Annotation
sok antitoxin (CssrC): a 162-nucleotide sequence from Klebsiella michiganensis. Rfam classes the family as an antitoxin RNA. From the family's description: Also identified in Shigella as CssrC.
[Rfam]
RNA sequence: CGGCGCUUGAGGCUUUCGCCUCAGGGCAGGAUUGAGUUUUACCGUUGUGCUGAGGCAGAAAGAAGAAAGCCCCGAAGGUAAUGUAAUCACCCACGAGGCUAUCUGCAUGCUUAGACAACAUCAGGUUAGUCUCUUACCCGCCGAAAGGCAAGGAGAUGUAUG
Numbered sequence: 001c002g003g004c005g006c007u008u009g010a011g012g013c014u015u016u017c018g019c020c021u022c023a024g025g026g027c028a029g030g031a032u033u034g035a036g037u038u039u040u041a042c043c044g045u046u047g048u049g050c051u052g053a054g055g056c057a058g059a060a061a062g063a064a065g066a067a068a069g070c071c072c073c074g075a076a077g078g079u080a081a082u083g084u085a086a087u088c089a090c091c092c093a094c095g096a097g098g099c100u101a102u103c104u105g106c107a108u109g110c111u112u113a114g115a116c117a118a119c120a121u122c123a124g125g126u127u128a129g130u131c132u133c134u135u136a137c138c139c140g141c142c143g144a145a146a147g148g149c150a151a152g153g154a155g156a157u158g159u160a161u162g
Stems, first nucleotide, its partner, number of pairs: 002072002005070004013062005018056005025048001027047003074094001077092001078090002081087002095133005101127001103125002107121003138158001141155001